RNA sequence: GAAUUUCGCUGGGGUCGACCUCCUCCCCGACCUCCAGCGAACGGUCAGCCCUUAUCCUCCUCCCGAGGGUUGGCCAACCAAACGGCGCCCGCCGCACCUCCUCCCGCGGCGGGCGUUGUUU
Numbered sequence: 001g002a003a004u005u006u007c008g009c010u011g012g013g014g015u016c017g018a019c020c021u022c023c024u025c026c027c028c029g030a031c032c033u034c035c036a037g038c039g040a041a042c043g044g045u046c047a048g049c050c051c052u053u054a055u056c057c058u059c060c061u062c063c064c065g066a067g068g069g070u071u072g073g074c075c076a077a078c079c080a081a082a083c084g085g086c087g088c089c090c091g092c093c094g095c096a097c098c099u100c101c102u103c104c105c106g107c108g109g110c111g112g113g114c115g116u117u118g119u120u121u
Stems, first nucleotide, its partner, number of pairs: 007039003011035002013032004043075010085116011
The record is a 121-nucleotide RNA sequence from Mesorhizobium japonicum, which matches "Alphaproteobacterial ar14" in Rfam. Gene Ontology term of the family: biological process involved in symbiotic interaction. It is annotated as a small RNA. From the family's description: Smr14C2 was renamed NfeR1 (Nodule Formation Efficiency RNA) highly expressed in salt stress and during the symbiotic interaction on legume roots.